Rfam assigns this 118-nucleotide RNA from Hespellia stercorisuis to the family "FMN riboswitch aptamer (RFN element)".
A search with the family's covariance model found it, with a score of 115 bits.
The source organism's lineage runs through Bacteria, Clostridia, Lachnospirales, Lachnospiraceae and Hespellia stercorisuis.
For this family Rfam cites "Regulation of riboflavin biosynthesis and transport genes in bacteria by transcriptional and translational attenuation" (Vitreschak et al., Nucleic Acids Res, 2002).
[Rfam]
RNA sequence: AAAGUUCUUCGGGGUAGGGUGCAAGUCCCAACCGGCGGUAUAGUCCGCGACCCACUUAGGUGGCUGAUUUGGUGCGAUUCCAAAACCGACAGUAAAGUCUGGAUGAGAGAAGAGAUUG
Numbered sequence: 001a002a003a004g005u006u007c008u009u010c011g012g013g014g015u016a017g018g019g020u021g022c023a024a025g026u027c028c029c030a031a032c033c034g035g036c037g038g039u040a041u042a043g044u045c046c047g048c049g050a051c052c053c054a055c056u057u058a059g060g061u062g063g064c065u066g067a068u069u070u071g072g073u074g075c076g077a078u079u080c081c082a083a084a085a086c087c088g089a090c091a092g093u094a095a096a097g098u099c100u101g102g103a104u105g106a107g108a109g110a111a112g113a114g115a116u117u118g
Stems, first nucleotide, its partner, number of pairs: 003116001005114006017029003031098002033088002035048004043086002052063002068084005090101003